[Rfam]
RNA sequence: UCGGUCCUGGGAUGCGUGCCAGAGGCGCGUUUACACGGCCUAAGUCAGAAAUCUGUAAAUGCACUAUCUGGUACGACAUCCCAGCACGG
Number, nucleotide and partner (000 for none) at each position: 001u000002c000003g000004g000005u000006c000007c000008u083009g082010g081011g080012a000013u000014g000015c075016g074017u073018g072019c071020c070021a069022g068023a067024g000025g064026c000027g062028c061029g060030u059031u058032u057033a056034c055035a054036c000037g000038g000039c000040c000041u000042a000043a000044g000045u000046c000047a000048g000049a000050a000051a000052u000053c000054u035055g034056u033057a032058a031059a030060u029061g028062c027063a000064c025065u000066a000067u023068c022069u021070g020071g019072u018073a017074c016075g015076a000077c000078a000079u000080c011081c010082c009083a008084g000085c000086a000087c000088g000089g000